[Rfam]
RNA sequence: GAGGGUGCCUCACCCUCCAAGCGACCGGUACCUGACACGGCCGGUUCGC
Number, nucleotide and partner (000 for none) at each position: 001g017002a016003g015004g014005g013006u012007g011008c000009c000010u000011c007012a006013c005014c004015c003016u002017c001018c000019a000020a000021g049022c048023g047024a000025c044026c043027g042028g041029u040030a000031c000032c000033u000034g000035a000036c000037a000038c000039g000040g029041c028042c027043g026044g025045u000046u000047c023048g022049c021
RNA: L17-Actino-Proteobacteria ribosomal protein leader
Organism: Burkholderiaceae bacterium